Rfam assigns this 97-nucleotide sequence from Aliiroseovarius crassostreae to the family "Singlet oxygen resistance RNA X". Rfam 15.1 lists 528 matches to the family in 356 species. The base pairs follow the family's consensus structure. About the family: SorX (RSs2461)like SorY is a singlet oxygen induced sRNA that counteracts oxidative stress by targeting mRNA for a transporter in Rhodobacter. It also has an impact on resistance against organic hydroperoxides. It targets SD sequence of potA mRNA via an aSD sequence. The aSD sequence and some neighbouring nucleotides are identical to the one of SorY (targets takP mRNA). The organism belongs to Aliiroseovarius, within Bacteria.
RNA sequence: CUCCCCCGUGCCGGGGCGUGCAUUUCUGUUGAUCGGAUAUGCAUAACGGCACAUCCUCCCUGUCAGACUGCCCGGGCCUUCGUGCCCGGGCUUUUUU
Numbered sequence: 001c002u003c004c005c006c007c008g009u010g011c012c013g014g015g016g017c018g019u020g021c022a023u024u025u026c027u028g029u030u031g032a033u034c035g036g037a038u039a040u041g042c043a044u045a046a047c048g049g050c051a052c053a054u055c056c057u058c059c060c061u062g063u064c065a066g067a068c069u070g071c072c073c074g075g076g077c078c079u080u081c082g083u084g085c086c087c088g089g090g091c092u093u094u095u096u097u
Stems, first nucleotide, its partner, number of pairs: 008052005070091008